The record is an 85-nucleotide RNA sequence from Clostridium sp. KNHs216, which matches "ZMP/ZTP riboswitch aptamer (pfl RNA motif)" in Rfam. Its family is annotated with one-carbon metabolic process and regulation of purine nucleotide biosynthetic process in the Gene Ontology.

[Rfam]
RNA sequence: AAAGGCUUUUAUUACUGACGGAUAAUUGUGGGUUCACCACAGUGGAAUAAAGGCCUUCUUUCAGCCGACCGUCUGGGCAGCAUUU
Number, nucleotide and partner (000 for none) at each position: 001a000002a000003a056004g055005g054006c053007u052008u051009u050010u049011a048012u047013u000014a000015c044016u000017g073018a072019c071020g070021g069022a000023u000024a000025a000026u000027u000028g040029u039030g038031g037032g000033u000034u000035c000036a000037c031038c030039a029040c028041a000042g000043u000044g015045g000046a000047a012048u011049a010050a009051a008052g007053g006054c005055c004056u003057u000058c000059u000060u000061u000062c080063a000064g078065c077066c076067g000068a000069c021070c020071g019072u018073c017074u000075g000076g066077g065078c064079a000080g062081c000082a000083u000084u000085u000